[Rfam]
RNA sequence: AUUACGAUGCGGCUCGUCAUCGGGCACUUUGCUAUUUUUUAAACGCAAGCUGCCUUUUGAAGGGCAACACCGUACU
Dot-bracket structure: ...(((.((..((((.(((...((...(((((............)))))...))...))).))))..)).)))...
This 76-nucleotide sequence from Apis mellifera belongs to the Rfam family "mir-980 microRNA precursor family".
The family's consensus secondary structure was predicted with RNAalifold.
Rfam 15.1 lists 121 matches to the family in 99 species.